[Rfam]
RNA sequence: CCGCAGGGAUGAGCCUCGGAACUCUCUCUUUCCGACGCCAGUGGGGAAGCUGAAGAUCUUUCUGAGCGGC
Numbered sequence: 001c002c003g004c005a006g007g008g009a010u011g012a013g014c015c016u017c018g019g020a021a022c023u024c025u026c027u028c029u030u031u032c033c034g035a036c037g038c039c040a041g042u043g044g045g046g047a048a049g050c051u052g053a054a055g056a057u058c059u060u061u062c063u064g065a066g067c068g069g070c
Base pairs, nucleotide, nucleotide: 001069002068003067004066
RNA: Small nucleolar RNA SNORD26
Organism: Ceuthmochares aereus